[Rfam]
RNA: Small nucleolar RNA SNORA4
Organism: Cnephaeus nilssonii
RNA sequence: CUCCUGGUUGAGUGUUUGACCCAGGAAGGUUUUUUUUUAAUAACCUUUACCAACUUUGGAUAUUUGGGAGAAUAAAGAAGACCACACUCUACAGUGGGCUGGAUCACUAAGCAUAGAGUUCACUACUAUUUGUGGCCUACAGU
Numbered sequence: 001c002u003c004c005u006g007g008u009u010g011a012g013u014g015u016u017u018g019a020c021c022c023a024g025g026a027a028g029g030u031u032u033u034u035u036u037u038u039a040a041u042a043a044c045c046u047u048u049a050c051c052a053a054c055u056u057u058g059g060a061u062a063u064u065u066g067g068g069a070g071a072a073u074a075a076a077g078a079a080g081a082c083c084a085c086a087c088u089c090u091a092c093a094g095u096g097g098g099c100u101g102g103a104u105c106a107c108u109a110a111g112c113a114u115a116g117a118g119u120u121c122a123c124u125a126c127u128a129u130u131u132g133u134g135g136c137c138u139a140c141a142g143u
Base pairs, nucleotide, nucleotide: 004067005066006065007064013062014061015060016059017058018057024051025050027048028045029044030043031042079138080137082135083134084133085132086131093124094123095122096121097120098119099118100117103114104113